Shown here is a 96-nucleotide RNA sequence from Enteractinococcus coprophilus, a member of the family "mraW RNA". Taxonomically the source falls in Enteractinococcus (Bacteria, Actinomycetes, Micrococcales, Micrococcaceae). It is annotated as a cis-regulatory element. It scores 51 bits against the family's covariance model.
RNA sequence: CAAGGUCUCUUAUUUCAGACCUCUGUCCGAACAGCUGGCCCGUCUUCCCCUGGGCCAGGUGCACGGAUGGGGAUCUGGGGUAAGAGCCUCAUUUUU
Numbered sequence: 001c002a003a004g005g006u007c008u009c010u011u012a013u014u015u016c017a018g019a020c021c022u023c024u025g026u027c028c029g030a031a032c033a034g035c036u037g038g039c040c041c042g043u044c045u046u047c048c049c050c051u052g053g054g055c056c057a058g059g060u061g062c063a064c065g066g067a068u069g070g071g072g073a074u075c076u077g078g079g080g081u082a083a084g085a086g087c088c089u090c091a092u093u094u095u096u
Stems, first nucleotide, its partner, number of pairs: 010083007018075002021072009032061002035058007